Rfam assigns this 112-nucleotide sequence from Pluralibacter gergoviae to the family "tp2". Pairs were carried over by alignment from the consensus structure, which was predicted with RNAalifold.
RNA sequence: GGUAUUCCUUAUCUAUCUAAUCGUUGAUUGGGUCUGGAACCUGUCCCAUUGAGUUCUCGGCUGAAAGCUCAAUAAGACAGGUUCUGCGUUAGUUGCCGCGCUCUAAUCCCGU
Numbered sequence: 001g002g003u004a005u006u007c008c009u010u011a012u013c014u015a016u017c018u019a020a021u022c023g024u025u026g027a028u029u030g031g032g033u034c035u036g037g038a039a040c041c042u043g044u045c046c047c048a049u050u051g052a053g054u055u056c057u058c059g060g061c062u063g064a065a066a067g068c069u070c071a072a073u074a075a076g077a078c079a080g081g082u083u084c085u086g087c088g089u090u091a092g093u094u095g096c097c098g099c100g101c102u103c104u105a106a107u108c109c110c111g112u
Stems, first nucleotide, its partner, number of pairs: 001097004022088003036085010048073005054067002057064002
Description:
It is annotated as a small RNA. A reference for the family is Rivas et al. (2001), "Computational identification of noncoding RNAs in E. coli by comparative genomics", Curr Biol.